The family of this 187-nucleotide RNA sequence from Lysobacter enzymogenes is "6S / SsrS RNA". The source organism's lineage runs through Bacteria, Pseudomonadota, Lysobacterales, Lysobacteraceae and Lysobacter. By type it is a non-coding RNA gene.
[Rfam]
RNA sequence: CGUCCUCUGCUGUGCGCGACGGCGUGCGCAAACAUUCGCCUUGUCCCUUAAUGACGACACCGGGGACGCGCCGGAAGCCUGGAGUGCAGGUCCGCCUCGCAGCGGGAAGCCCGAAGGCGUCCAAGCGUUCCCACUUGAACCCCGGGUUCAAGGUCGUUUCGCAAGCAUCGCCAUUGGCGGAGGACUA
Numbered sequence: 001c002g003u004c005c006u007c008u009g010c011u012g013u014g015c016g017c018g019a020c021g022g023c024g025u026g027c028g029c030a031a032a033c034a035u036u037c038g039c040c041u042u043g044u045c046c047c048u049u050a051a052u053g054a055c056g057a058c059a060c061c062g063g064g065g066a067c068g069c070g071c072c073g074g075a076a077g078c079c080u081g082g083a084g085u086g087c088a089g090g091u092c093c094g095c096c097u098c099g100c101a102g103c104g105g106g107a108a109g110c111c112c113g114a115a116g117g118c119g120u121c122c123a124a125g126c127g128u129u130c131c132c133a134c135u136u137g138a139a140c141c142c143c144g145g146g147u148u149c150a151a152g153g154u155c156g157u158u159u160c161g162c163a164a165g166c167a168u169c170g171c172c173a174u175u176g177g178c179g180g181a182g183g184a185c186u187a
Base pairs, nucleotide, nucleotide: 002185003184004183005182006181007180008179009178010177011176012174013173014172017170018169019168038154039153040152042150043149046146047145062132063131064130066128067127068126069125073122074121075120077118079117080116086110087109091106092105093104094103095102